[Rfam]
RNA sequence: GAUGAAGACUACUCACUCAACUUGGCUGUGAUGACAAAUUAAGGCGUCACAACCUCCUUGAGUGAGUGAUUUUCACU
Numbered sequence: 001g002a003u004g005a006a007g008a009c010u011a012c013u014c015a016c017u018c019a020a021c022u023u024g025g026c027u028g029u030g031a032u033g034a035c036a037a038a039u040u041a042a043g044g045c046g047u048c049a050c051a052a053c054c055u056c057c058u059u060g061a062g063u064g065a066g067u068g069a070u071u072u073u074c075a076c077u
Stems, first nucleotide, its partner, number of pairs: 009068001012066009024054002027051007
Dot-bracket structure: ........(..(((((((((...((.(((((((...........))))))).))...))))))))).).........
Shown here is a 77-nucleotide sequence from Lepeophtheirus salmonis, a member of the family "mir-67 microRNA precursor family".
Its family is annotated with miRNA-mediated post-transcriptional gene silencing and RISC complex in the Gene Ontology.
NCBI's taxonomy places the organism under Eukaryota, Eumetazoa, Arthropoda, Mandibulata, Lepeophtheirus.
It scores 61 bits against the family's covariance model.
On this family, see Cao et al., Insect Biochem Mol Biol 2008: "Identification of conserved microRNAs in Bombyx mori (silkworm) and regulation of fibroin L chain production by microRNAs in heterologous system".